[Rfam]
RNA sequence: GCUGUGGAGCGUUUAAUCUGGAGUAGCUGCGGCGAAACAGGACGCGAAGAAGCAGCGA
Numbered sequence: 001g002c003u004g005u006g007g008a009g010c011g012u013u014u015a016a017u018c019u020g021g022a023g024u025a026g027c028u029g030c031g032g033c034g035a036a037a038c039a040g041g042a043c044g045c046g047a048a049g050a051a052g053c054a055g056c057g058a
Stems, first nucleotide, its partner, number of pairs: 001056005009045005018040003026033002
Dot-bracket structure: (((((...(((((....(((.....((....))....))))))))......)))))..
The record is a 58-nucleotide RNA sequence, which matches "RAGATH-18 RNA" in Rfam. About the family: Actinobacteria, Firmicutes, Fusobacteria, Thermotogae (1 example).